mir-2071 microRNA precursor family: a 74-nucleotide RNA sequence from Branchiostoma floridae. Pairs were carried over by alignment from the consensus structure, which was predicted with RNAalifold.
RNA sequence: GUUGAAUAUGCGGUGCGGUGGUAGCAACCGUCCCGACGUAAAGUCGAUUGUUACACCGCGCCGCAAAAGUUGAC
Numbered sequence: 001g002u003u004g005a006a007u008a009u010g011c012g013g014u015g016c017g018g019u020g021g022u023a024g025c026a027a028c029c030g031u032c033c034c035g036a037c038g039u040a041a042a043g044u045c046g047a048u049u050g051u052u053a054c055a056c057c058g059c060g061c062c063g064c065a066a067a068a069g070u071u072g073a074c
Base pairs, nucleotide, nucleotide: 001074002073003072004071005070009065010064011063012062013061014060015059016058017057018056019055020054022053023052024051025050026049027048034046035045036044037043